[Rfam]
RNA sequence: UGACACCAAGAAAAAAAGUCAUGACCCACGGUGUGCUUGCACAUACGUGGGUUUAUGACUUUAUUUUCUGCCCCCUUUAUGAGCAUAACAGGGAAGCGUAAGCUUCCCGAUAUGCGAAUAAGGGGGGUAACGAUUGCGGGAGUGCGCAGCACGGAGCAAUCGUAAAGGUGUCA
Numbered sequence: 001u002g003a004c005a006c007c008a009a010g011a012a013a014a015a016a017a018g019u020c021a022u023g024a025c026c027c028a029c030g031g032u033g034u035g036c037u038u039g040c041a042c043a044u045a046c047g048u049g050g051g052u053u054u055a056u057g058a059c060u061u062u063a064u065u066u067u068c069u070g071c072c073c074c075c076u077u078u079a080u081g082a083g084c085a086u087a088a089c090a091g092g093g094a095a096g097c098g099u100a101a102g103c104u105u106c107c108c109g110a111u112a113u114g115c116g117a118a119u120a121a122g123g124g125g126g127g128u129a130a131c132g133a134u135u136g137c138g139g140g141a142g143u144g145c146g147c148a149g150c151a152c153g154g155a156g157c158a159a160u161c162g163u164a165a166a167g168g169u170g171u172c173a
Stems, first nucleotide, its partner, number of pairs: 001173007010068004016061007023053008031044005073125008083115004091108007131162007142152004
RNA: Clostridiales-1 RNA